[Rfam]
RNA: transfer-messenger RNA
RNA sequence: GGGGGCGUUUUUGGAUUCGACGGGGGUAGAUCGAGCAUGGGUAGCGGGUAGUGGGGACGCGGCCGCUUUAUCAACGCUAAAGCCUAUUAAAUGGCAAACAACAAAACAACUACGCUUUCGCAGCUUAAUAACCUGUGAGCGUGCUCCUCUCUUGCAUCGCCCAUGUGCCGGAUGUAGGGGCUAACCUAUAGUGGGAUACGCCGAUCGGUCUCCGCCUGGGGUCGACGGAAGAAGACAAUCAGGCUGACCCAAAGGGAAUCUUGUGACAGGGAGUCUCUAGGGUGACAUCAAAUCUGUCACUACACCCGUAGAAGCCUAUGUGGCGUUGCCUUCGGACAGGGGUUCGACUCCCCUCGCCUCCAUAA
Dot-bracket structure: (((((((.............(((((((((.....((((((((..((((((((((..[.....)))))..........]......................................(((((((.........)))))))...((((((.(((.((((..[[[[[)))).)))...)))))).........]]]]]...((.(((((.......[.[[.[))))).))............].]].].((((.(.(((..(((.[[[[..[))).))).).)))).........]...]]]]...))))).....))))))))....)))))))))...(((((.......))))))))))))....